[Rfam]
RNA sequence: ACCAGCCCGUGUGGCGAGAUCCCCGGCCGAGUGGUUCUGACGCACUUCCCCGGCGUCAGAGACACCCGGACGGGGCUCUGGCCCCACGGACCCCCACCC
Dot-bracket structure: .........((.(((..((.(((((.(((.(((.(((((((((.........))))))))).))).))).))))).))..))).)).............

The family of this 99-nucleotide RNA sequence from Aeromicrobium marinum is "mraW RNA". It is annotated as a cis-regulatory element.